[Rfam]
RNA: mir-395 microRNA precursor family
Organism: Mikania micrantha
RNA sequence: GUGUUCCUAAGGGAUCCUCCGAACACUUCAUUGGGUUGUUAAAUUGUAUAUCCUACUGAAGUGUUUGGGGGAACUCCAAGGAUUAC
Numbered sequence: 001g002u003g004u005u006c007c008u009a010a011g012g013g014a015u016c017c018u019c020c021g022a023a024c025a026c027u028u029c030a031u032u033g034g035g036u037u038g039u040u041a042a043a044u045u046g047u048a049u050a051u052c053c054u055a056c057u058g059a060a061g062u063g064u065u066u067g068g069g070g071g072a073a074c075u076c077c078a079a080g081g082a083u084u085a086c
Stems, first nucleotide, its partner, number of pairs: 005082004011076003015072006022066002024063007032055004